[Rfam]
Description: The record is a 92-nucleotide RNA sequence from Paspalum vaginatum, which matches "Small nucleolar RNA R38" in Rfam. From the family's description: snoR38 is a C/D box small nucleolar RNA conserved across yeast, human, Arabidopsis and rice. It is encoded in the intron of elongation factor-1 gamma in both pombe and cerevisiae. snoR38 guides the methylation of 2'-O-ribose sites in 28S rRNA. Its family is annotated with RNA processing and nucleolus in the Gene Ontology. The family's RNA type in Rfam is C/D-box small nucleolar RNA. A reference for the family is Bachellerie et al. (1995), "Antisense snoRNAs: a family of nucleolar RNAs with long complementarities to rRNA", Trends Biochem Sci.
RNA sequence: GCAUGUGGAUGAUGAUAACUAAAGUAAAAUACAGUUAUCCCUGUCUGAUUCCUUCAAAAAGGGUGCUGAGAAAACUUUAUUCUGACACGAUU
Numbered sequence: 001g002c003a004u005g006u007g008g009a010u011g012a013u014g015a016u017a018a019c020u021a022a023a024g025u026a027a028a029a030u031a032c033a034g035u036u037a038u039c040c041c042u043g044u045c046u047g048a049u050u051c052c053u054u055c056a057a058a059a060a061g062g063g064u065g066c067u068g069a070g071a072a073a074a075c076u077u078u079a080u081u082c083u084g085a086c087a088c089g090a091u092u
Stems, first nucleotide, its partner, number of pairs: 001092001004089004